Molybdenum/Tungsten riboswitch aptamer (Moco RNA motif): a 151-nucleotide sequence from Bowmanella dokdonensis.
RNA sequence: GUAUUGGAUAGCUACCGAGCCUUUGCCGCUAAACCCAUAGAGCUAUGAAUGGGCAGGCGGCCCUGGCCGCAAAUCGCAACAAGGUUUGCCAGGGCUGACGGGGAAACCCUUCAGCCUCCCGAUUUUGGAAAGGUUGAGGUACCGAUGUUAC
Numbered sequence: 001g002u003a004u005u006g007g008a009u010a011g012c013u014a015c016c017g018a019g020c021c022u023u024u025g026c027c028g029c030u031a032a033a034c035c036c037a038u039a040g041a042g043c044u045a046u047g048a049a050u051g052g053g054c055a056g057g058c059g060g061c062c063c064u065g066g067c068c069g070c071a072a073a074u075c076g077c078a079a080c081a082a083g084g085u086u087u088g089c090c091a092g093g094g095c096u097g098a099c100g101g102g103g104a105a106a107c108c109c110u111u112c113a114g115c116c117u118c119c120c121g122a123u124u125u126u127g128g129a130a131a132g133g134u135u136g137a138g139g140u141a142c143c144g145a146u147g148u149u150a151c
Stems, first nucleotide, its partner, number of pairs: 004144001006142001012136001014134003019067003025061005034053005069089007092117007100109003118128002